[Rfam]
RNA sequence: GUGCCGGGACGACCCGGUUUGCGCUCCUCACCGCCGGGACGGCCCGG
Dot-bracket structure: (.((((((....)))))).).............(((((....)))))
The record is a 47-nucleotide RNA from Rhizomicrobium palustre, which matches "Guanidine-II riboswitch aptamer (mini-ykkC)" in Rfam. The match comes from Rfam's covariance-model search (39 bits). NCBI's taxonomy places the organism under Bacteria, Pseudomonadati, Alphaproteobacteria, Micropepsales, Rhizomicrobium. Gene Ontology term of the family: regulation of gene expression.